[Rfam]
RNA sequence: GGCGAUAAACGUUCUUCGCAAUAAACCUAUCGGACCCGGGGGCGGUACCCGGCGCCUCCACCCGAACCCAGGACCGAUGGCCGCAUGGCCGGUGUUGGGUUCCGGCGGGGGCGAAAUAGGAUCGACGAGGGCGUAAAAGGAGCACUUUCGCUCGGCAUGGUUCCGCCGUUAUCGGGCCUUUGCAAUAGUUGCCAACGACAACUUUGCUCCGGUGGCUGUCGCCGCGUAA
Numbered sequence: 001g002g003c004g005a006u007a008a009a010c011g012u013u014c015u016u017c018g019c020a021a022u023a024a025a026c027c028u029a030u031c032g033g034a035c036c037c038g039g040g041g042g043c044g045g046u047a048c049c050c051g052g053c054g055c056c057u058c059c060a061c062c063c064g065a066a067c068c069c070a071g072g073a074c075c076g077a078u079g080g081c082c083g084c085a086u087g088g089c090c091g092g093u094g095u096u097g098g099g100u101u102c103c104g105g106c107g108g109g110g111g112c113g114a115a116a117u118a119g120g121a122u123c124g125a126c127g128a129g130g131g132c133g134u135a136a137a138a139g140g141a142g143c144a145c146u147u148u149c150g151c152u153c154g155g156c157a158u159g160g161u162u163c164c165g166c167c168g169u170u171a172u173c174g175g176g177c178c179u180u181u182g183c184a185a186u187a188g189u190u191g192c193c194a195a196c197g198a199c200a201a202c203u204u205u206g207c208u209c210c211g212g213u214g215g216c217u218g219u220c221g222c223c224g225c226g227u228a229a
Base pairs, nucleotide, nucleotide: 001152002151003150004149005148014142015141016140017139026131027130028129030128031127032126036052037051038050039049040048053113054112055111056110057109058108059107153168154167155166156165
About this RNA:
This 229-nucleotide RNA from Methylorubrum rhodinum belongs to the Rfam family "permuted transfer-messenger RNA". The base pairs follow the family's consensus structure, which is taken from published work. The source organism's lineage runs through Bacteria, Pseudomonadota, Hyphomicrobiales, Methylobacteriaceae and Methylorubrum. Its family is annotated with RNA catabolic process in the Gene Ontology. It is annotated as a non-coding RNA gene.